U4 spliceosomal RNA: a 164-nucleotide sequence from Penicillium flavigenum. From the family's description: U4 small nuclear RNA (U4 snRNA) is a component of the major U2-dependent spliceosome. Its Rfam clan is "U4 clan". It is annotated as a spliceosomal small nuclear RNA. The family's consensus secondary structure is taken from published work.

RNA sequence: AUCCUAGUGCAAGGGCUUAACACGUAUCAGUGAGGAGAAAUCCGAGAUCGUGUUUUUGCUAGUUGAAAACUACCUAACGUUGACUGCUUCGAGUGGGCCUCAUUGCCUGCUUGGGAAUUUUUGAAACACUCCUACUCCUACUCCUACUCCUUAACUCUUGGAGU
Numbered sequence: 001a002u003c004c005u006a007g008u009g010c011a012a013g014g015g016c017u018u019a020a021c022a023c024g025u026a027u028c029a030g031u032g033a034g035g036a037g038a039a040a041u042c043c044g045a046g047a048u049c050g051u052g053u054u055u056u057u058g059c060u061a062g063u064u065g066a067a068a069a070c071u072a073c074c075u076a077a078c079g080u081u082g083a084c085u086g087c088u089u090c091g092a093g094u095g096g097g098c099c100u101c102a103u104u105g106c107c108u109g110c111u112u113g114g115g116a117a118u119u120u121u122u123g124a125a126a127c128a129c130u131c132c133u134a135c136u137c138c139u140a141c142u143c144c145u146a147c148u149c150c151u152u153a154a155c156u157c158u159u160g161g162a163g164u
Stems, first nucleotide, its partner, number of pairs: 020053005026048003034043003088115011128164004